[Rfam]
RNA sequence: CAAAGCAAGCAGAAGCGCCCGCUUCUCACCUGAUUGACGCCGUAACUGGUAGUUUGCAGGUACACUGUUUUUAUAAUUGUGUAAUGUGUGGGUGUCGUAUGCGCCGACGCUUUUUUUAUGCU
Numbered sequence: 001c002a003a004a005g006c007a008a009g010c011a012g013a014a015g016c017g018c019c020c021g022c023u024u025c026u027c028a029c030c031u032g033a034u035u036g037a038c039g040c041c042g043u044a045a046c047u048g049g050u051a052g053u054u055u056g057c058a059g060g061u062a063c064a065c066u067g068u069u070u071u072u073a074u075a076a077u078u079g080u081g082u083a084a085u086g087u088g089u090g091g092g093u094g095u096c097g098u099a100u101g102c103g104c105c106g107a108c109g110c111u112u113u114u115u116u117u118a119u120g121c122u
Base pairs, nucleotide, nucleotide: 011026012025013024014023015022016021028061029060030059036054037053038052039050040049087109088108089107091105092104093103094102095101
Dot-bracket structure: ..........((((((....)))))).(((.....(((((........)).)))....))).........................(((.(((((.....))))).))).............